[Rfam]
RNA sequence: AUUAACAUCCAUUAACAUCUAUUAACACGAAUAUGCAUGAACUAGAUCAAAGUUUUAAAUAUUAUAGCGAUGUAGAUUAGCAAACACUAAUCUCAUGACAUUUCUCCUUUUCAACCGAAACUGUUUUAUGCAGAUUCGUUGUUCAACGCAAUGAUCACCCCAAUCAUUGCGUUUUUUUUGCUUAUAAUAUUG
Numbered sequence: 001a002u003u004a005a006c007a008u009c010c011a012u013u014a015a016c017a018u019c020u021a022u023u024a025a026c027a028c029g030a031a032u033a034u035g036c037a038u039g040a041a042c043u044a045g046a047u048c049a050a051a052g053u054u055u056u057a058a059a060u061a062u063u064a065u066a067g068c069g070a071u072g073u074a075g076a077u078u079a080g081c082a083a084a085c086a087c088u089a090a091u092c093u094c095a096u097g098a099c100a101u102u103u104c105u106c107c108u109u110u111u112c113a114a115c116c117g118a119a120a121c122u123g124u125u126u127u128a129u130g131c132a133g134a135u136u137c138g139u140u141g142u143u144c145a146a147c148g149c150a151a152u153g154a155u156c157a158c159c160c161c162a163a164u165c166a167u168u169g170c171g172u173u174u175u176u177u178u179u180g181c182u183u184a185u186a187a188u189a190u191u192g
Base pairs, nucleotide, nucleotide: 014054015053016052018050021047022046023045026039027038065192066191067190071186072185073184074183075182077180078097079096080094082093084091116138117137118136119135121133122132123131124130146172147171148170149169150168151167152166153165154164155163

Shown here is a 192-nucleotide sequence from Acinetobacter haemolyticus, a member of the family "Aar sRNA".
Rfam links the family to the GO term regulation of cellular amino acid metabolic process.
Lineage of the source: Bacteria > Pseudomonadota > Gammaproteobacteria > Moraxellaceae > Acinetobacter haemolyticus.
The base pairs follow the family's consensus structure, which was predicted with mfold.
Rfam classes the family as a small RNA.
On this family, see Schilling et al., Arch Microbiol 2010: "The small RNA Aar in Acinetobacter baylyi: a putative regulator of amino acid metabolism".